[Rfam]
RNA sequence: AUACUCUGGUUUCUCCUCAGAUCGUAUAAAUCUUUCGCCUUUUACUAAAGAUUUCCGUGGGGAGGAACAUUCACGAGUUUCUACCCAAUUUUUUGAGGCUUCACUUCGGUGAGGCU
Numbered sequence: 001a002u003a004c005u006c007u008g009g010u011u012u013c014u015c016c017u018c019a020g021a022u023c024g025u026a027u028a029a030a031u032c033u034u035u036c037g038c039c040u041u042u043u044a045c046u047a048a049a050g051a052u053u054u055c056c057g058u059g060g061g062g063a064g065g066a067a068c069a070u071u072c073a074c075g076a077g078u079u080u081c082u083a084c085c086c087a088a089u090u091u092u093u094u095g096a097g098g099c100u101u102c103a104c105u106u107c108g109g110u111g112a113g114g115c116u
Stems, first nucleotide, its partner, number of pairs: 003078004009068011028054008096116001098115006

Background:
The record is a 116-nucleotide RNA sequence from Platysternon megacephalum, which matches "U5 spliceosomal RNA" in Rfam. About the family: U5 RNA is a component of both types of known spliceosome. The precise function of this molecule is unknown, though it is known that the 5' loop is required for splice site selection and p220 binding, and that both the 3' stem-loop and the Sm site are important for Sm protein binding and cap methylation. Gene Ontology terms of the family: U5 snRNP and spliceosomal tri-snRNP complex assembly. The family has 180 seed sequences and 28,527 matches in Rfam 15.1. The organism belongs to Platysternon, within Eukaryota.